Shown here is a 69-nucleotide RNA from Virgisporangium ochraceum, a member of the family "ASpks TB sRNA". Lineage of the source: Bacteria > Bacillati > Actinomycetota > Actinomycetes > Virgisporangium. A search with the family's covariance model found it, with a score of 73 bits. By type it is an antisense RNA. The base pairs follow the family's consensus structure, which is taken from published work.

RNA sequence: CUUGAUCGACCCGAGCCACAGCGGCUGAUCCCUGUCCUGACCGUAGGUGGCCAGGAGCGCCUGCGCCUC
Numbered sequence: 001c002u003u004g005a006u007c008g009a010c011c012c013g014a015g016c017c018a019c020a021g022c023g024g025c026u027g028a029u030c031c032c033u034g035u036c037c038u039g040a041c042c043g044u045a046g047g048u049g050g051c052c053a054g055g056a057g058c059g060c061c062u063g064c065g066c067c068u069c
Stems, first nucleotide, its partner, number of pairs: 014026004031065001032059001037054003041050003